Makes More Granules Regulator RNA (mmgR): a 79-nucleotide RNA from Neoaquamicrobium microcysteis. It scores 68 bits against the family's covariance model. The family is grouped with related families in Rfam's "suhB sRNA clan".

[Rfam]
RNA sequence: UGUCUAUGCCCUCCUUGGGCGUUUCCUCCCUAGACUUCGACCGCGUCGUGCAAACGGUGCGGUCUUUUUUUCGUCCGGU
Numbered sequence: 001u002g003u004c005u006a007u008g009c010c011c012u013c014c015u016u017g018g019g020c021g022u023u024u025c026c027u028c029c030c031u032a033g034a035c036u037u038c039g040a041c042c043g044c045g046u047c048g049u050g051c052a053a054a055c056g057g058u059g060c061g062g063u064c065u066u067u068u069u070u071u072c073g074u075c076c077g078g079u
Stems, first nucleotide, its partner, number of pairs: 008020004039064009
Rfam's curators write: SuhB later renamed mmgR (makes more granules regulator) was a putative non-coding RNA found multiple times in the Agrobacterium tumefaciens genome and related alpha-proteobacteria. Other non-coding RNAs uncovered in the same analysis include: speF, ybhL, metA, and serC.Several studies inSinorhizobium meliloti showed that suhB element is indeed a non-coding RNA:firstly it was detected on Northern blot and called Sm8RNA, secondly in an RNAseq study referred to as SmelC689.The mutant phenotype's (strain lacking the small RNA) cytoplasm contains higher content of polyhydroxybutyrate (PBH)storage granules than wild type strain. The sRNA is required to limit the PBH intracellular accumulation when the nitrogen-fixing Sinorhizobium meliloti is under condition of surplus carbon in relation to nitrogen.